[Rfam]
RNA sequence: GUUUUGGUGGCAGUGAAGUUAGUGAUUGUGGCAUGAGGGAUACAAUCAGCUAACUACACUGCCUUCAAACC
Numbered sequence: 001g002u003u004u005u006g007g008u009g010g011c012a013g014u015g016a017a018g019u020u021a022g023u024g025a026u027u028g029u030g031g032c033a034u035g036a037g038g039g040a041u042a043c044a045a046u047c048a049g050c051u052a053a054c055u056a057c058a059c060u061g062c063c064u065u066c067a068a069a070c071c
Stems, first nucleotide, its partner, number of pairs: 003069004009063002012060004017055006023048008
RNA: mir-34 microRNA precursor family